Rfam assigns this 132-nucleotide sequence from Rhodobacteraceae bacterium PARR1 to the family "FMN riboswitch aptamer (RFN element)".
Pairs were carried over by alignment from the consensus structure, which is taken from published work.

RNA sequence: AAAACUUCUCAGGGCGGGGCGAAAUUCCCCACCGGCGGUAUAGCCCGCGAGCGCCCCUGCCAAAGCGGGGGGUCAGCAGAUCCGGUGAAACUCCGGGGCCGACGGUCACAGUCCGGAUGAAAGAGAAAGAGU
Numbered sequence: 001a002a003a004a005c006u007u008c009u010c011a012g013g014g015c016g017g018g019g020c021g022a023a024a025u026u027c028c029c030c031a032c033c034g035g036c037g038g039u040a041u042a043g044c045c046c047g048c049g050a051g052c053g054c055c056c057c058u059g060c061c062a063a064a065g066c067g068g069g070g071g072g073u074c075a076g077c078a079g080a081u082c083c084g085g086u087g088a089a090a091c092u093c094c095g096g097g098g099c100c101g102a103c104g105g106u107c108a109c110a111g112u113c114c115g116g117a118u119g120a121a122a123g124a125g126a127a128a129g130a131g132u
Stems, first nucleotide, its partner, number of pairs: 006127005017029003031112002033101002035048004043099002051077002081097005103115003
It scores 108 bits against the family's covariance model.